[Rfam]
RNA sequence: UGAUUUACACAACAAAUACUCACGCCUAUCGUCACGCUUGGUAGGGUGCUGGCUUUUAAAACUUAAGGCUGGUUACCAGGCGGGAUAAGCGGAGGCUUAAC
Numbered sequence: 001u002g003a004u005u006u007a008c009a010c011a012a013c014a015a016a017u018a019c020u021c022a023c024g025c026c027u028a029u030c031g032u033c034a035c036g037c038u039u040g041g042u043a044g045g046g047u048g049c050u051g052g053c054u055u056u057u058a059a060a061a062c063u064u065a066a067g068g069c070u071g072g073u074u075a076c077c078a079g080g081c082g083g084g085a086u087a088a089g090c091g092g093a094g095g096c097u098u099a100a101c
Stems, first nucleotide, its partner, number of pairs: 023091003027087004035082009048073008
About this RNA:
t44 RNA: a 101-nucleotide RNA from Methyloglobulus morosus. The family's RNA type in Rfam is small RNA. Rfam describes the family as follows. This family consists of a number of bacterial RNA genes of between 135 and 170 bases in length. The t44 gene has been identified in several species of enteric bacteria but homologs have also been identified in Pseudomonas and Coxiella species. The t44 gene is found between the map and rpsB genes in all species in the full alignment apart from Shigella flexneri. The function of this RNA is unknown. A search with the family's covariance model found it, with a score of 66 bits. For this family Rfam cites "Transcriptome analysis of Escherichia coli using high-density oligonucleotide probe arrays" (Tjaden et al., Nucleic Acids Res, 2002).